A member of the RNA family "Ribosomal protein L20 leader" from Shouchella lonarensis, 123 nucleotides long. The family's RNA type in Rfam is cis-regulatory leader. About the family: This family is a putative r-protein leader autoregulatory structure found in B. subtilis and other low-GC Gram-positive bacteria. It is located in the 5' untranslated regions of mRNAs encoding initiation factor 3 followed by ribosomal proteins L35 and L20 (infC-rpmI-rplT). A Rho-independent transcription terminator structure that is probably involved in regulation is included at the 3' end.
RNA sequence: UAAAGCAAGAAGAAGCGCCUGCUUCUCACCUGUUUGACGUUCGUUGCCAGGUUAGUCAUUCAUUAUGUAUGUUUUCGUAGCGAAUGAAAUGUGGGCGUCUUGCGUCCACAUUUUUUGUGUGUU
Numbered sequence: 001u002a003a004a005g006c007a008a009g010a011a012g013a014a015g016c017g018c019c020u021g022c023u024u025c026u027c028a029c030c031u032g033u034u035u036g037a038c039g040u041u042c043g044u045u046g047c048c049a050g051g052u053u054a055g056u057c058a059u060u061c062a063u064u065a066u067g068u069a070u071g072u073u074u075u076c077g078u079a080g081c082g083a084a085u086g087a088a089a090u091g092u093g094g095g096c097g098u099c100u101u102g103c104g105u106c107c108a109c110a111u112u113u114u115u116u117g118u119g120u121g122u123u
Base pairs, nucleotide, nucleotide: 011026012025013024014023015022016021028052029051030050035046036045037044038043090110091109092108093107094106095105096104097103098102
Dot-bracket structure: ..........((((((....)))))).(((....((((....))))...))).....................................(((((((((...))))))))).............
The match comes from Rfam's covariance-model search (72 bits). Taxonomically the source falls in Shouchella (Bacteria, Bacillati, Bacilli, Caryophanales).